[Rfam]
RNA sequence: CAUCAUGCUUGACCUUCCACACUCCCGUGUCCGCUAGCAGGCAGGUUUUCUGACACAGGCUGUGGGAUUCAGGAUAGUGCAUCGUG
Numbered sequence: 001c002a003u004c005a006u007g008c009u010u011g012a013c014c015u016u017c018c019a020c021a022c023u024c025c026c027g028u029g030u031c032c033g034c035u036a037g038c039a040g041g042c043a044g045g046u047u048u049u050c051u052g053a054c055a056c057a058g059g060c061u062g063u064g065g066g067a068u069u070c071a072g073g074a075u076a077g078u079g080c081a082u083c084g085u086g
Base pairs, nucleotide, nucleotide: 001086002085003084005082006081007080008079009077010076011075013073014072015071016067017066018065020064021063022062024059025058027056028055029054030053031052036047037046038045
Annotation
A member of the RNA family "mir-604 microRNA precursor family" from Nomascus leucogenys, 86 nucleotides long. Lineage of the source: Eukaryota > Metazoa > Vertebrata > Hominoidea > Nomascus.